MIR2619 microRNA precursor family: a 201-nucleotide RNA from Medicago truncatula.
Its family is annotated with RISC complex and miRNA-mediated post-transcriptional gene silencing in the Gene Ontology.
RNA sequence: AAACAGUCUUAUAUGUAUUGUAUCUUUGACAGUUUUGGCCUCCAAUAUCACUUUUGGUUUAGUCUUCGUUGACGUGACACCCACAAUGGUCGACUUGUGGCACCUUACUUAAGGGAUGUGGGUGCCACGUCAGCGAAGACUAAGUCAAAAGUGACAUUGAGAGCCAAAACUGCCAAAGAUCCAAUACAUAGGGGGUUGUUU
Numbered sequence: 001a002a003a004c005a006g007u008c009u010u011a012u013a014u015g016u017a018u019u020g021u022a023u024c025u026u027u028g029a030c031a032g033u034u035u036u037g038g039c040c041u042c043c044a045a046u047a048u049c050a051c052u053u054u055u056g057g058u059u060u061a062g063u064c065u066u067c068g069u070u071g072a073c074g075u076g077a078c079a080c081c082c083a084c085a086a087u088g089g090u091c092g093a094c095u096u097g098u099g100g101c102a103c104c105u106u107a108c109u110u111a112a113g114g115g116a117u118g119u120g121g122g123u124g125c126c127a128c129g130u131c132a133g134c135g136a137a138g139a140c141u142a143a144g145u146c147a148a149a150a151g152u153g154a155c156a157u158u159g160a161g162a163g164c165c166a167a168a169a170c171u172g173c174c175a176a177a178g179a180u181c182c183a184a185u186a187c188a189u190a191g192g193g194g195g196u197u198g199u200u201u
Base pairs, nucleotide, nucleotide: 001201002200004198005197006196007195008194012190013189014188015187016186017185018184019183020182022180023179024178025177026176027175028174030172031171032170033169034168035167036166037165038164039163041161043159044158045157072130073129075127076126078124079123080122081121082120